[Rfam]
RNA: Lysine riboswitch aptamer
Organism: Erysipelothrix inopinata
RNA sequence: AUAAAUAUUAGAGGUAGCGGUGCAGAUGAGUACUUACUGGAGUCGACAGACUGUGAAAGUAAGAAAAGGCAAUCACCGCCGAAUAGAUUGUUUUGGUAAAAACAAUCUAUGGGGUUAUGAGGAAUACUUAUAACACUCCUUUGUUAAGCAAAGCGGCGCUAGAAUUCUC
Numbered sequence: 001a002u003a004a005a006u007a008u009u010a011g012a013g014g015u016a017g018c019g020g021u022g023c024a025g026a027u028g029a030g031u032a033c034u035u036a037c038u039g040g041a042g043u044c045g046a047c048a049g050a051c052u053g054u055g056a057a058a059g060u061a062a063g064a065a066a067a068g069g070c071a072a073u074c075a076c077c078g079c080c081g082a083a084u085a086g087a088u089u090g091u092u093u094u095g096g097u098a099a100a101a102a103c104a105a106u107c108u109a110u111g112g113g114g115u116u117a118u119g120a121g122g123a124a125u126a127c128u129u130a131u132a133a134c135a136c137u138c139c140u141u142u143g144u145u146a147a148g149c150a151a152a153g154c155g156g157c158g159c160u161a162g163a164a165u166u167c168u169c
Base pairs, nucleotide, nucleotide: 006164008162009161010160011159017079018078019077020076021075022074025070033063034062035061036060037059038058083110084109085108086107087106088105089104090103091102092101093100094099111137112136114134115133116132117131118130119129120128121127139153140152141151142150143149